This 108-nucleotide RNA from Nocardioides sp. LS1 belongs to the Rfam family "TPP riboswitch aptamer (THI element)". The match comes from Rfam's covariance-model search (70 bits).
[Rfam]
RNA sequence: GGGACAUGACAGGGGAGCACGCCCGACGUGCUGAGAGUGCGGAUCCGCCGCAGACCCUAUGAACCUGCUCCGGUUAACACCGGCGAAGGGAGUCCCAGAUGAAGUCAU
Numbered sequence: 001g002g003g004a005c006a007u008g009a010c011a012g013g014g015g016a017g018c019a020c021g022c023c024c025g026a027c028g029u030g031c032u033g034a035g036a037g038u039g040c041g042g043a044u045c046c047g048c049c050g051c052a053g054a055c056c057c058u059a060u061g062a063a064c065c066u067g068c069u070c071c072g073g074u075u076a077a078c079a080c081c082g083g084c085g086a087a088g089g090g091a092g093u094c095c096c097a098g099a100u101g102a103a104g105u106c107a108u
Base pairs, nucleotide, nucleotide: 008094009093010092011058012057013056014055017031018030019029020028021027038052039051040050041049042048064089065088066087070083071082072081073080
NCBI's taxonomy places the organism under Bacteria, Bacillati, Actinomycetota, Propionibacteriales, Nocardioides.